Rfam assigns this 60-nucleotide RNA sequence from Mesembryanthemum cordifolium to the family "Plastid-ccsA-ndhD-2 3UTR RNA".
[Rfam]
RNA sequence: CGUUUGUGAGAACCAUUUAAAUCACUAUAGUAAUAGUGAUUUAAAUGGUUCUCGCCUGUU
Numbered sequence: 001c002g003u004u005u006g007u008g009a010g011a012a013c014c015a016u017u018u019a020a021a022u023c024a025c026u027a028u029a030g031u032a033a034u035a036g037u038g039a040u041u042u043a044a045a046u047g048g049u050u051c052u053c054g055c056c057u058g059u060u
Stems, first nucleotide, its partner, number of pairs: 006055019
Background:
Rfam 15.1 lists 875 matches to the family in 517 species. Rfam's curators put it in the seed alignment. Rfam classes the family as a cis-regulatory element. Plastid ccsA-ndhD-2 is a non-coding RNA (ncRNA) recognised in plastids. It was found in the three prime untranslated region (3UTR) of ccsA and ndhD genes, its 3UTR location suggests a role in transcript maturation.